[Rfam]
RNA sequence: UGGGGUAGUGCAGACACCCCGUUAGACGAGAACACCCCGUCCAAGGUCUGC
Numbered sequence: 001u002g003g004g005g006u007a008g009u010g011c012a013g014a015c016a017c018c019c020c021g022u023u024a025g026a027c028g029a030g031a032a033c034a035c036c037c038c039g040u041c042c043a044a045g046g047u048c049u050g051c
Base pairs, nucleotide, nucleotide: 001021002020003019004018005017006016010051011050012049013048014047025041026040027039028038
Annotation: The record is a 51-nucleotide RNA sequence, which matches "chrB-b RNA" in Rfam. Rfam classes the family as a cis-regulatory element. The sequence is in the family's curated seed alignment. The family's consensus secondary structure is taken from published work.